[Rfam]
RNA sequence: AGAUGAGCGAUGAUGAUGAAAUUUUUUUGGACUAGAGUUUCUGAUAAUUGGGUAAUAAAUAAGUACCCAAUAUUUGAAGACUAACCCUUGGCUGUCUGAGCUCCUCU
Numbered sequence: 001a002g003a004u005g006a007g008c009g010a011u012g013a014u015g016a017u018g019a020a021a022u023u024u025u026u027u028u029g030g031a032c033u034a035g036a037g038u039u040u041c042u043g044a045u046a047a048u049u050g051g052g053u054a055a056u057a058a059a060u061a062a063g064u065a066c067c068c069a070a071u072a073u074u075u076g077a078a079g080a081c082u083a084a085c086c087c088u089u090g091g092c093u094g095u096c097u098g099a100g101c102u103c104c105u106c107u
Stems, first nucleotide, its partner, number of pairs: 001107003005103004038079004045072002048070007
Dot-bracket structure: (((.((((.............................((((...((.(((((((.........)))))))))...))))....................)))).)))
The family of this 107-nucleotide sequence from Carex littledalei is "Small nucleolar RNA Z157/R69/R10". A reference for the family is Chen et al. (2003), "The high diversity of snoRNAs in plants: identification and comparative study of 120 snoRNA genes from Oryza sativa", Nucleic Acids Res. The family has 10 seed sequences and 836 matches in Rfam 15.1. Gene Ontology terms of the family: RNA processing and nucleolus. By type it is a C/D-box small nucleolar RNA. Taxonomically the source falls in Carex subgen. Euthyceras (Eukaryota, Streptophyta, Euphyllophyta, Mesangiospermae).